Small nucleolar RNA Z161/Z228: a 98-nucleotide RNA from Populus tomentosa.
[Rfam]
RNA sequence: AAACCAAAUGAUGAAUUUGGAUGUAAAUUUCUCACGAUGGUCAUCUGAGACUCUUCAAGUUUCAGUGUUGAUUCAAUUAUCCAAUGCUCCUGAUGGUU
Number, nucleotide and partner (000 for none) at each position: 001a098002a097003a000004c095005c000006a000007a000008a000009u000010g000011a000012u000013g000014a000015a000016u000017u000018u000019g000020g000021a000022u000023g000024u000025a000026a000027a000028u000029u000030u000031c000032u000033c000034a000035c000036g000037a000038u000039g000040g000041u000042c000043a000044u000045c000046u000047g000048a000049g000050a000051c059052u058053c000054u000055u000056c000057a000058a052059g051060u000061u000062u000063c000064a000065g000066u000067g000068u000069u000070g000071a000072u000073u000074c000075a000076a000077u000078u000079a000080u000081c000082c000083a000084a000085u000086g000087c000088u000089c000090c000091u000092g000093a000094u000095g004096g000097u002098u001

Gene Ontology terms of the family: nucleolus and RNA processing.
Rfam 15.1 lists 630 matches to the family in 214 species.